This 75-nucleotide RNA sequence from Drosophila virilis belongs to the Rfam family "Small nucleolar RNA CD11".
Its family is annotated with nucleolus and RNA processing in the Gene Ontology.
The family's RNA type in Rfam is C/D-box small nucleolar RNA.
[Rfam]
RNA sequence: AUUGAAAAAUCUGAUGAAUGAUUUGGCAGAAGAGUUCUUGAAGACUAUAUUCAUCACCCAAGACUGAAUAUGUAG
Number, nucleotide and partner (000 for none) at each position: 001a071002u070003u000004g000005a000006a000007a000008a000009a000010u000011c000012u000013g000014a000015u000016g000017a000018a000019u000020g000021a000022u000023u000024u000025g000026g000027c000028a000029g037030a036031a035032g000033a000034g000035u031036u030037c029038u000039u000040g000041a000042a000043g000044a000045c000046u000047a000048u000049a000050u000051u000052c000053a000054u000055c000056a000057c000058c000059c000060a000061a000062g000063a000064c000065u000066g000067a000068a000069u000070a002071u001072g000073u000074a000075g000
Background: The family's consensus secondary structure was predicted with ILM. On this family, see Huang et al., RNA 2005: "Genome-wide analyses of two families of snoRNA genes from Drosophila melanogaster, demonstrating the extensive utilization of introns for coding of snoRNAs".